Record summary:
Rfam assigns this 113-nucleotide RNA sequence from Streptomyces sp. PT12 to the family "Streptomyces-metH RNA". Pairs were carried over by alignment from the consensus structure, which is taken from published work. Rfam classes the family as a small RNA.
RNA sequence: CACGCCGCCGUGAUGUCUCCCCCCGCGGGCGCCAAGGCCGUUAGGCUGAUUCGGUGCGCUUCGUCACGACGCGCAUAGCCGACAGCCGUCGCACCCCAGGGAGCAUGCCCAUG
Numbered sequence: 001c002a003c004g005c006c007g008c009c010g011u012g013a014u015g016u017c018u019c020c021c022c023c024c025g026c027g028g029g030c031g032c033c034a035a036g037g038c039c040g041u042u043a044g045g046c047u048g049a050u051u052c053g054g055u056g057c058g059c060u061u062c063g064u065c066a067c068g069a070c071g072c073g074c075a076u077a078g079c080c081g082a083c084a085g086c087c088g089u090c091g092c093a094c095c096c097c098a099g100g101g102a103g104c105a106u107g108c109c110c111a112u113g
Stems, first nucleotide, its partner, number of pairs: 055075005061069002078092002081090003